Guanidine-II riboswitch aptamer (mini-ykkC): a 54-nucleotide sequence from Rhodanobacter sp. MP7CTX1. The match comes from Rfam's covariance-model search (34 bits). Pairs were carried over by alignment from the consensus structure, which is taken from published work. From the family's description: Simpler in structure and has fewer highly conserved nucleotide positions than the ykkC-yxkD leader.
RNA sequence: CGCGGAGGACGACCUCCGCCGGAGUUUCUCUCAUUGAUCGCGGGGACGACCCUG
Numbered sequence: 001c002g003c004g005g006a007g008g009a010c011g012a013c014c015u016c017c018g019c020c021g022g023a024g025u026u027u028c029u030c031u032c033a034u035u036g037a038u039c040g041c042g043g044g045g046a047c048g049a050c051c052c053u054g
Base pairs, nucleotide, nucleotide: 002019003018004017005016006015007014008013041054042053043052044051045050